[Rfam]
RNA sequence: UGGAAUUUUUGCUCUUUAGUAUUUCUCCAGCAGGUUUCCUGAUAAACAGGAAGCCCCC
Numbered sequence: 001u002g003g004a005a006u007u008u009u010u011g012c013u014c015u016u017u018a019g020u021a022u023u024u025c026u027c028c029a030g031c032a033g034g035u036u037u038c039c040u041g042a043u044a045a046a047c048a049g050g051a052a053g054c055c056c057c058c
Stems, first nucleotide, its partner, number of pairs: 033055009